Annotation:
Group II catalytic intron D1-D4-3: a 175-nucleotide RNA sequence from Lachnospiraceae bacterium KHCPX20. Pairs were carried over by alignment from the consensus structure. A search with the family's covariance model found it, with a score of 122 bits. The organism belongs to Lachnospiraceae, within Bacteria.
[Rfam]
RNA sequence: UCCAUCGCGAGAUGGAAUCUGAAGGAAGCUGGAUGUGGGAACAUACUAACCUACGGGCAAAUCUCUGGUCUGACGAACAGAAAUCUCAUAUGAGGUUAUGCAUGAGGGUAAGGCUGCAACACAAGUCGAAGCCCAAUAACUACACGGAAUCAUGCAUGAUAAAUGAGGCAGAUGG
Numbered sequence: 001u002c003c004a005u006c007g008c009g010a011g012a013u014g015g016a017a018u019c020u021g022a023a024g025g026a027a028g029c030u031g032g033a034u035g036u037g038g039g040a041a042c043a044u045a046c047u048a049a050c051c052u053a054c055g056g057g058c059a060a061a062u063c064u065c066u067g068g069u070c071u072g073a074c075g076a077a078c079a080g081a082a083a084u085c086u087c088a089u090a091u092g093a094g095g096u097u098a099u100g101c102a103u104g105a106g107g108g109u110a111a112g113g114c115u116g117c118a119a120c121a122c123a124a125g126u127c128g129a130a131g132c133c134c135a136a137u138a139a140c141u142a143c144a145c146g147g148a149a150u151c152a153u154g155c156a157u158g159a160u161a162a163a164u165g166a167g168g169c170a171g172a173u174g175g
Stems, first nucleotide, its partner, number of pairs: 001016006068173005084168006095160003099156007106134004112127004